[Rfam]
RNA: Small nucleolar RNA SNORA9
RNA sequence: AAGCAGACCGUUCCAGCGAGGCCGAGCCUGCCGUGGCUCCGGCCUUUCCUACUGUGUCUGCCAUAGAAACGAGAGGCUGUUUGAGGCCCUGUUGUGGUGCCCCCCGCAGCAGGGUUGUAGGUAAACCUCCAACAAAC
Numbered sequence: 001a002a003g004c005a006g007a008c009c010g011u012u013c014c015a016g017c018g019a020g021g022c023c024g025a026g027c028c029u030g031c032c033g034u035g036g037c038u039c040c041g042g043c044c045u046u047u048c049c050u051a052c053u054g055u056g057u058c059u060g061c062c063a064u065a066g067a068a069a070c071g072a073g074a075g076g077c078u079g080u081u082u083g084a085g086g087c088c089c090u091g092u093u094g095u096g097g098u099g100c101c102c103c104c105c106g107c108a109g110c111a112g113g114g115u116u117g118u119a120g121g122u123a124a125a126c127c128u129c130c131a132a133c134a135a136a137c
Base pairs, nucleotide, nucleotide: 003061004060005059006058007057008056019045020044021043024039025038026037027036028035073129074128075127076126087114088113089112090111091110092109094107095106096105